[Rfam]
RNA sequence: GGUCUGAUGCCACGUCGUUAAUAGCAAAUUAGCUAUGAUUUCCGAUGCUAUGAUUAGACCAAGAUUAAAUUUUAAUUAGUGUUUCGCAUUUUGAUAGGAAUCCGUUGGUCGUAUUAGUGAUUAAACGGAGCCGUUUUGUGCGAUUAUAUUC
Numbered sequence: 001g002g003u004c005u006g007a008u009g010c011c012a013c014g015u016c017g018u019u020a021a022u023a024g025c026a027a028a029u030u031a032g033c034u035a036u037g038a039u040u041u042c043c044g045a046u047g048c049u050a051u052g053a054u055u056a057g058a059c060c061a062a063g064a065u066u067a068a069a070u071u072u073u074a075a076u077u078a079g080u081g082u083u084u085c086g087c088a089u090u091u092u093g094a095u096a097g098g099a100a101u102c103c104g105u106u107g108g109u110c111g112u113a114u115u116a117g118u119g120a121u122u123a124a125a126c127g128g129a130g131c132c133g134u135u136u137u138g139u140g141c142g143a144u145u146a147u148a149u150u151c
Base pairs, nucleotide, nucleotide: 002059003058004057005056006055007054008053009051013047014046015045016044017043020040021039022038024033025032084143085142086141087140088139097132098131102128103127104126106123107122108121109120110119
Rfam assigns this 151-nucleotide sequence from Spinacia oleracea to the family "Small nucleolar RNA snoR2/U65". The family's consensus secondary structure was predicted with WAR. By type it is an H/ACA-box small nucleolar RNA. Clan: SNORA65 clan.